[Rfam]
RNA: t44 RNA
RNA sequence: ACUUAACUUUUAACAAUACUCACAUUAAUCGUCACGUUUGAUAGGGUGCUUUUAGAGCUUAUGCUAAAAAGUUAUCAAUCGGGAUUAAUGGCGGCGUAAC
Numbered sequence: 001a002c003u004u005a006a007c008u009u010u011u012a013a014c015a016a017u018a019c020u021c022a023c024a025u026u027a028a029u030c031g032u033c034a035c036g037u038u039u040g041a042u043a044g045g046g047u048g049c050u051u052u053u054a055g056a057g058c059u060u061a062u063g064c065u066a067a068a069a070a071g072u073u074a075u076c077a078a079u080c081g082g083g084a085u086u087a088a089u090g091g092c093g094g095c096g097u098a099a100c
Stems, first nucleotide, its partner, number of pairs: 023090008035081002038078006048072005
Dot-bracket structure: ......................((((((((....((.((((((....(((((...............))))))))))).)).))))))))..........